The family of this 92-nucleotide sequence from Paracoccus caeni is "Rhodo-rpoB RNA". Taxonomically the source falls in Paracoccus (Bacteria, Pseudomonadati, Alphaproteobacteria, Paracoccaceae). The family's consensus secondary structure is taken from published work. A search with the family's covariance model found it, with a score of 68 bits.
Nucleotides: 092
Base pairs, nucleotide, nucleotide: 001043002042003041004040005039010031011030012029013028014027015026016025017024063092064091065090066089069086070085071084072083073082
Number, partner (000 for none) and nucleotide at each position: 001043g002042g003041u004040u005039c006000g007000g008000g009000a010031g011030u012029u013028g014027u015026g016025c017024g018000g019000u020000g021000g022000g023000a024017c025016g026015c027014a028013c029012g030011a031010c032000a033000c034000g035000a036000a037000u038000g039005g040004a041003a042002c043001c044000u045000c046000a047000c048000c049000c050000c051000u052000a053000c054000a055000u056000u057000c058000g059000u060000a061000g062000g063092c064091g065090c066089a067000a068000u069086c070085c071084g072083g073082g074000g075000g076000c077000c078000c079000c080000g081000a082073c083072c084071c085070g086069g087000a088000a089066u090065g091064c092063g